Overview
L31-Coriobacteria ribosomal protein leader: a 33-nucleotide RNA. The family's RNA type in Rfam is cis-regulatory leader.

RNA sequence: GGCUUGGUCGGAAACCAAGCCUCGAUAAAGGAG
Numbered sequence: 001g002g003c004u005u006g007g008u009c010g011g012a013a014a015c016c017a018a019g020c021c022u023c024g025a026u027a028a029a030g031g032a033g
Stems, first nucleotide, its partner, number of pairs: 001021008